[Rfam]
RNA sequence: ACUUGCAUUUUCAAAUCUUCUAAACUUAUGCCUGCUGCCUUGGCAUAACAAGGAUAAUAAUUAAGGAUGGUUUUAGUACGUAGGCAUUGCAAAACCCUCAAUCUGAAGAAGGUUCUAAUAAAGCAAUGAAUCGUGCAUGCCAACCUAGUAUCUUUCAAAGAUAUCCAUACCGUAGCGAUC
Numbered sequence: 001a002c003u004u005g006c007a008u009u010u011u012c013a014a015a016u017c018u019u020c021u022a023a024a025c026u027u028a029u030g031c032c033u034g035c036u037g038c039c040u041u042g043g044c045a046u047a048a049c050a051a052g053g054a055u056a057a058u059a060a061u062u063a064a065g066g067a068u069g070g071u072u073u074u075a076g077u078a079c080g081u082a083g084g085c086a087u088u089g090c091a092a093a094a095c096c097c098u099c100a101a102u103c104u105g106a107a108g109a110a111g112g113u114u115c116u117a118a119u120a121a122a123g124c125a126a127u128g129a130a131u132c133g134u135g136c137a138u139g140c141c142a143a144c145c146u147a148g149u150a151u152c153u154u155u156c157a158a159a160g161a162u163a164u165c166c167a168u169a170c171c172g173u174a175g176c177g178a179u180c
Stems, first nucleotide, its partner, number of pairs: 036054001038053004060179001062174002065171002068167003076136005085128006091116001093114003138150003142146001
The record is a 180-nucleotide sequence from Drosophila rhopaloa, which matches "R2 RNA element" in Rfam. The organism belongs to Sophophora, within Eukaryota. Rfam describes the family as follows. This family represents the 3' UTR region of the R2 retrotransposable element. This family is known to interact with the R2-encoded reverse transcriptase in a reaction known as target primed reverse transcription (TPRT). It scores 84 bits against the family's covariance model. Gene Ontology term of the family: regulation of reverse transcription.